A member of the RNA family "Nucleoid-associated noncoding RNA 4 (CssrE)" from Escherichia coli, 71 nucleotides long.

[Rfam]
RNA sequence: UGUCGGCUGAGGUGCUCACGCCGCAUCCGGCAAUCAACGUCUGAUGCGACGCUUGCGCGUCUUAUCAGACC
Numbered sequence: 001u002g003u004c005g006g007c008u009g010a011g012g013u014g015c016u017c018a019c020g021c022c023g024c025a026u027c028c029g030g031c032a033a034u035c036a037a038c039g040u041c042u043g044a045u046g047c048g049a050c051g052c053u054u055g056c057g058c059g060u061c062u063u064a065u066c067a068g069a070c071c
Stems, first nucleotide, its partner, number of pairs: 002031005008025001011022004039070008048061005
Description:
Pairs were carried over by alignment from the consensus structure, which is taken from published work. Rfam's curators write: In E. coli small RNA transcribed from repeated extragenic palindromic element (REP325) called nucleoid-associated ncRNA 4 (nRNA4) collaborates HU protein in condensing the DNA. The secondary structure but not the sequence of the RNA is important in nucleoid condensation. Taxonomically the source falls in Escherichia coli O157:H7 (Bacteria, Gammaproteobacteria, Enterobacteriaceae, Escherichia). The family has 3 seed sequences and 870 matches in Rfam 15.1.